[Rfam]
Rfam assigns this 261-nucleotide RNA to the family "Hairpin ribozyme 2 from viruses-like metatranscriptomes". A reference for the family is Weinberg et al. (2021), "Identification of over 200-fold more hairpin ribozymes than previously known in diverse circular RNAs", Nucleic Acids Res. Pairs were carried over by alignment from the consensus structure, which is taken from published work. Hairpin-meta ribozymes were recognised in metatranscriptomic sequences of viruses-like organisms, it was proved by co-transcriptional assays that hairpin-meta1 and hairpin-meta2 non-coding RNA (ncRNAs) are catalytically active and it is suggested that they likely replicate as circular single-stranded RNAs. It is one of the family's seed sequences. Rfam links the family to the GO term RNA nuclease activity.
RNA sequence: UAAAUAGGGUAUUCUUACCUAGGGCUGUCCGUGGAACCAGGAAAUUUGGUGCCUGAGGGGUCCUCAAGUCCGCAUCAAUCGGCCGAAUUGCGUAAGACCGACAGCAAGGUACAUCUUUGAGAGUCUUGUUGCAAGGAGGACAUGCCAAUCCGGAGAAUGGGGUGAGACUCCUCUGAAAUCCGGUGUCGCUUCAUUCCACGGGAAGCCCAAACAAAGUGAAACACGCGAGCAGUUGGCGCGUUUGCGGUAUAUUAGCUUUGA
Number, nucleotide and partner (000 for none) at each position: 001u000002a000003a000004a000005u021006a020007g019008g018009g000010u000011a000012u000013u000014c000015u000016u000017a000018c008019c007020u006021a005022g208023g207024g206025c205026u000027g000028u000029c000030c200031g199032u198033g197034g196035a195036a194037c000038c055039a054040g053041g052042a000043a000044a000045u000046u000047u000048g000049g000050u000051g000052c041053c040054u039055g038056a000057g000058g000059g000060g141061u140062c139063c138064u137065c000066a000067a000068g000069u000070c000071c000072g000073c000074a000075u000076c000077a000078a000079u101080c100081g099082g098083c000084c000085g000086a000087a000088u000089u000090g000091c000092g000093u000094a000095a000096g000097a000098c082099c081100g080101a079102c131103a130104g129105c128106a127107a126108g000109g000110u000111a000112c000113a000114u000115c000116u000117u000118u000119g000120a000121g000122a000123g000124u000125c000126u107127u106128g105129u104130u103131g102132c000133a000134a000135g000136g000137a064138g063139g062140a061141c060142a000143u000144g000145c000146c000147a000148a000149u000150c000151c000152g000153g000154a000155g000156a000157a000158u000159g000160g000161g000162g000163u000164g000165a000166g000167a000168c000169u000170c000171c000172u000173c000174u000175g000176a000177a000178a000179u000180c000181c000182g000183g000184u000185g000186u000187c000188g000189c000190u000191u000192c000193a000194u036195u035196c034197c033198a032199c031200g030201g000202g000203a000204a000205g025206c024207c023208c022209a000210a000211a000212c000213a259214a258215a257216g256217u000218g000219a000220a000221a000222c000223a000224c246225g245226c244227g243228a242229g241230c240231a000232g000233u000234u000235g000236g000237c000238g000239c000240g230241u229242u228243u227244g226245c225246g224247g000248u000249a000250u000251a000252u000253u000254a000255g000256c216257u215258u214259u213260g000261a000